The record is a 74-nucleotide RNA from Desulfonema limicola, which matches "c-di-GMP-I-GGC riboswitch aptamer" in Rfam. Pairs were carried over by alignment from the consensus structure, which is taken from published work. Taxonomically the source falls in Desulfonema (Bacteria, Desulfobacteria, Desulfobacterales, Desulfococcaceae).
RNA sequence: GUAUGAAAAGCCAAACCUGCUGCAAAGCAGGGACGGAAAGCCACGGGUCUUAUAAGAUAGCCGGGUUGCAACAA
Numbered sequence: 001g002u003a004u005g006a007a008a009a010g011c012c013a014a015a016c017c018u019g020c021u022g023c024a025a026a027g028c029a030g031g032g033a034c035g036g037a038a039a040g041c042c043a044c045g046g047g048u049c050u051u052a053u054a055a056g057a058u059a060g061c062c063g064g065g066u067u068g069c070a071a072c073a074a
Base pairs, nucleotide, nucleotide: 004070011036012035016031017030018029019028020027021026034060039067040066041065042064044063045062046061047058048057049056